[Rfam]
RNA: RNA anti-toxin A
Organism: Liquorilactobacillus oeni
RNA sequence: AAACGCUGAAAAAGAAAAAGGAAGUCCCACGUGAACAGGACUUCCCGUGUAGAGCCGUUAAAGACGGUGGCAGAUAUUAAAACAACACUAGU
Numbered sequence: 001a002a003a004c005g006c007u008g009a010a011a012a013a014g015a016a017a018a019a020g021g022a023a024g025u026c027c028c029a030c031g032u033g034a035a036c037a038g039g040a041c042u043u044c045c046c047g048u049g050u051a052g053a054g055c056c057g058u059u060a061a062a063g064a065c066g067g068u069g070g071c072a073g074a075u076a077u078u079a080a081a082a083c084a085a086c087a088c089u090a091g092u
Base pairs, nucleotide, nucleotide: 026039027038054068055067056066057065058064059063